The record is a 132-nucleotide RNA sequence from Laticauda laticaudata, which matches "Small nucleolar RNA SNORA69" in Rfam. The match comes from Rfam's covariance-model search (66 bits). The family's consensus secondary structure was predicted with PFOLD. Lineage of the source: Eukaryota > Craniata > Euteleostomi > Sauria > Laticauda. The family's RNA type in Rfam is H/ACA-box small nucleolar RNA. Rfam links the family to the GO terms nucleolus and RNA processing. U69 is a member of the H/ACA class of small nucleolar RNAs (snoRNAs) which act as guides in the the modification of uridines to pseudouridines.
RNA sequence: GAAGCAGGUAGCAAUUGCAGUGUUCCCUUACAUGGAAACACUGCCAUAUCCCUGCUGAGAGCAAUUCUGUUAUAUGGGAUUUGAUUUCUCCACCAUCCUGGUGAAAUUAGCCUCUUUUUAACAGUGACAAGC
Numbered sequence: 001g002a003a004g005c006a007g008g009u010a011g012c013a014a015u016u017g018c019a020g021u022g023u024u025c026c027c028u029u030a031c032a033u034g035g036a037a038a039c040a041c042u043g044c045c046a047u048a049u050c051c052c053u054g055c056u057g058a059g060a061g062c063a064a065u066u067c068u069g070u071u072a073u074a075u076g077g078g079a080u081u082u083g084a085u086u087u088c089u090c091c092a093c094c095a096u097c098c099u100g101g102u103g104a105a106a107u108u109a110g111c112c113u114c115u116u117u118u119u120a121a122c123a124g125u126g127a128c129a130a131g132c
Base pairs, nucleotide, nucleotide: 003056004055005054006053007052008051018043019042020041021040022039023038024037026035065126067124068123069122070121071120072119074117082109083108084107085106086105087104088103090101091100092099